The family of this 129-nucleotide sequence from Treponema pedis is "TD-1 RNA".
The literature on the family includes a 2007 paper in Nucleic Acids Res by Weinberg et al., "Identification of 22 candidate structured RNAs in bacteria using the CMfinder comparative genomics pipeline".
Rfam classes the family as a cis-regulatory element.
The family has 28 seed sequences and 147 matches in Rfam 15.1.
Lineage of the source: Bacteria > Pseudomonadati > Treponematales > Treponema > Treponema pedis.

RNA sequence: AAAACACUAGCCGAGUUUGCCUUUCAGGCAAACGUCGAAUAUUAUAUGUCGUUUCUCACUUCGUUGCGAAACGGCGGAAAUUCUGCAAUCCUCAGAAUUUGAAAAUUCUUGCGGUUGCAGAAUUUAUAC
Numbered sequence: 001a002a003a004a005c006a007c008u009a010g011c012c013g014a015g016u017u018u019g020c021c022u023u024u025c026a027g028g029c030a031a032a033c034g035u036c037g038a039a040u041a042u043u044a045u046a047u048g049u050c051g052u053u054u055c056u057c058a059c060u061u062c063g064u065u066g067c068g069a070a071a072c073g074g075c076g077g078a079a080a081u082u083c084u085g086c087a088a089u090c091c092u093c094a095g096a097a098u099u100u101g102a103a104a105a106u107u108c109u110u111g112c113g114g115u116u117g118c119a120g121a122a123u124u125u126a127u128a129c
Stems, first nucleotide, its partner, number of pairs: 013036002015033008048075008080123009090114002094109006